[Rfam]
Record summary:
The record is a 382-nucleotide sequence from Caulobacter radicis, which matches "Bacterial RNase P class A" in Rfam. From the family's description: Ribonuclease P (RNase P) is a ubiquitous endoribonuclease, found in archaea, bacteria and eukarya as well as chloroplasts and mitochondria. A search with the family's covariance model found it, with a score of 296 bits. The family's consensus secondary structure is taken from published work.
RNA sequence: CCAGAUGGCCGGGCGAUCGCGGUAUCCUGUAAGGGAGUCGAGGAAAGUCCGGGCUCCACGGUGACAAGGCGGUGGGUAACGCCCACCGGGAGCGAUCCCAGGGAAAGCGCCACAGAAAGCAAACCUCCUCCCUACGGGGCGGGAAGGGUGAAAGGGUGGGGUAAGAGCCCACCGCGGACCUGGCGACAGGGACGGCAUGGCAAGCCCCGCCUGGAGCAAGACCGAAUAGGGAUCCCGCGCCGGUUCGCCGGCUAGGUCGUCACUGGCCGAGAGGAUCCGGGUUGGUCGCGAGAGUCGUCCAGCAAUGGGCGGCCAAGAGGAAUGAUCGUCGCGUCCCUUCACAGGGGCGGCACAGAACCCGGCUUACAGGCCGUCUGGUCCA
Numbered sequence: 001c002c003a004g005a006u007g008g009c010c011g012g013g014c015g016a017u018c019g020c021g022g023u024a025u026c027c028u029g030u031a032a033g034g035g036a037g038u039c040g041a042g043g044a045a046a047g048u049c050c051g052g053g054c055u056c057c058a059c060g061g062u063g064a065c066a067a068g069g070c071g072g073u074g075g076g077u078a079a080c081g082c083c084c085a086c087c088g089g090g091a092g093c094g095a096u097c098c099c100a101g102g103g104a105a106a107g108c109g110c111c112a113c114a115g116a117a118a119g120c121a122a123a124c125c126u127c128c129u130c131c132c133u134a135c136g137g138g139g140c141g142g143g144a145a146g147g148g149u150g151a152a153a154g155g156g157u158g159g160g161g162u163a164a165g166a167g168c169c170c171a172c173c174g175c176g177g178a179c180c181u182g183g184c185g186a187c188a189g190g191g192a193c194g195g196c197a198u199g200g201c202a203a204g205c206c207c208c209g210c211c212u213g214g215a216g217c218a219a220g221a222c223c224g225a226a227u228a229g230g231g232a233u234c235c236c237g238c239g240c241c242g243g244u245u246c247g248c249c250g251g252c253u254a255g256g257u258c259g260u261c262a263c264u265g266g267c268c269g270a271g272a273g274g275a276u277c278c279g280g281g282u283u284g285g286u287c288g289c290g291a292g293a294g295u296c297g298u299c300c301a302g303c304a305a306u307g308g309g310c311g312g313c314c315a316a317g318a319g320g321a322a323u324g325a326u327c328g329u330c331g332c333g334u335c336c337c338u339u340c341a342c343a344g345g346g347g348c349g350g351c352a353c354a355g356a357a358c359c360c361g362g363c364u365u366a367c368a369g370g371c372c373g374u375c376u377g378g379u380c381c382a
Stems, first nucleotide, its partner, number of pairs: 001378010011367001012330007020040004025035004045365003049362005054216004067212005072086005087101001088099004102207002107205002109201003124147002126143003130139003155173006174196001175194002179190004220287004230278006255268004294313008